Background
The family of this 216-nucleotide sequence from Salmo salar is "Small nucleolar RNA U3". It is annotated as a C/D-box small nucleolar RNA. Small nucleolar RNAs (snoRNAs) are involved in the processing and modification of rRNA in the nucleolus. The family has 87 seed sequences and 19,072 matches in Rfam 15.1.
[Rfam]
RNA sequence: AAGACUAUACUUUCAGGGAUAAUUUCUAUAGUUCGUUACUUGAGGAAAGUGUGUUUAAAGUGGUAGGUCUCGCUAUCCAUGAUGACGAUUCAAGAUAUUCCCGUUCAGAGCAUGAAUCUGGUGGCUAGAUAUGACUUUGCUCAUGUUUCUUCUAGCUUUGAUGAUCUUUCCUUGUUCGUCAAUGAACAUUGAUGAAGGGAAUAUGUUCUGAGUGGA
Dot-bracket structure: (((..(..(((...((((.....))))..)))..)...)))..........((((......))))..........(((((..............((((((((.((((..(.........(.((....(((((((......))))).))....)).)...........)....((((((....))))))....)))))))))))).......)))))
The base pairs follow the family's consensus structure, which is taken from published work.